[Rfam]
Nucleotides: 094
Stems, first nucleotide, its partner, number of pairs: 002093003007088001009086005015080002018078002021075002024073002027070003032063003035057004040052002
Number, partner (000 for none) and nucleotide at each position: 001000c002093g003092u004091a005000u006000u007088c008000a009086g010085u011084u012083g013082u014000a015080u016079u017000c018078g019077a020000c021075u022074g023000u024073a025072u026000u027070c028069a029068c030000g031000g032063c033062g034061u035057g036056a037055a038054a039000c040052a041051g042000g043000g044000g045000a046000u047000u048000a049000c050000a051041c052040u053000a054038u055037u056036u057035u058000u059000a060000a061034a062033u063032g064000g065000a066000a067000a068029g069028u070027g071000u072025a073024u074022c075021a076000a077019u078018u079016a080015a081000c082013a083012u084011a085010a086009u087000a088007g089000a090000c091004u092003a093002c094000u

The family of this 94-nucleotide sequence from Nicotiana sylvestris is "MIR6152 microRNA precursor family". Pairs were carried over by alignment from the consensus structure, which was predicted with RNAalifold. Taxonomically the source falls in Nicotiana (Eukaryota, Streptophyta, Euphyllophyta, eudicotyledons). It scores 78 bits against the family's covariance model. Rfam links the family to the GO terms RISC complex and miRNA-mediated post-transcriptional gene silencing.